A member of the RNA family "mir-221 microRNA precursor family" from Lepisosteus oculatus, 84 nucleotides long. The base pairs follow the family's consensus structure, which was predicted with RNAalifold. Rfam links the family to the GO terms miRNA-mediated post-transcriptional gene silencing and RISC complex. The family has 72 seed sequences and 1,797 matches in Rfam 15.1. The literature on the family includes a 2008 paper in J Virol by Yao et al., "MicroRNA profile of Marek's disease virus-transformed T-cell line MSB-1: predominance of virus-encoded microRNAs". NCBI's taxonomy places the organism under Eukaryota, Metazoa, Deuterostomia, Lepisosteidae, Lepisosteus.
RNA sequence: UCUGGCCUGCACCUGGCAUACAAUGUAGAUUUCUGUGUUGUUCUGUCUACAGCUACAUUGUCUGCUGGGUUUCAGGCUACCUAU
Dot-bracket structure: ............((((((.(((((((((....((((............))))))))))))).))))))................
Numbered sequence: 001u002c003u004g005g006c007c008u009g010c011a012c013c014u015g016g017c018a019u020a021c022a023a024u025g026u027a028g029a030u031u032u033c034u035g036u037g038u039u040g041u042u043c044u045g046u047c048u049a050c051a052g053c054u055a056c057a058u059u060g061u062c063u064g065c066u067g068g069g070u071u072u073c074a075g076g077c078u079a080c081c082u083a084u
Stems, first nucleotide, its partner, number of pairs: 013068006020061009033052004